[Rfam]
RNA sequence: AAUCCCGAAGGCAGCGCACUCCUCCUCCCAGCGCUUCCUUUCAUCGGACUGACAACACUCCUCCUCCCAGUUGUCAGUCAGGAUCAAGAGCCCGACGCACCUCCUCCCGCGUCGGGCUCUUUUC
Numbered sequence: 001a002a003u004c005c006c007g008a009a010g011g012c013a014g015c016g017c018a019c020u021c022c023u024c025c026u027c028c029c030a031g032c033g034c035u036u037c038c039u040u041u042c043a044u045c046g047g048a049c050u051g052a053c054a055a056c057a058c059u060c061c062u063c064c065u066c067c068c069a070g071u072u073g074u075c076a077g078u079c080a081g082g083a084u085c086a087a088g089a090g091c092c093c094g095a096c097g098c099a100c101c102u103c104c105u106c107c108c109g110c111g112u113c114g115g116g117c118u119c120u121u122u123u124c
Stems, first nucleotide, its partner, number of pairs: 007042003011037001013035005047079010088119011
Annotation: Shown here is a 124-nucleotide sequence from Rhizobium sp. BK275, a member of the family "Alphaproteobacterial ar14". A search with the family's covariance model found it, with a score of 117 bits. Pairs were carried over by alignment from the consensus structure. The organism belongs to Rhizobium, within Bacteria.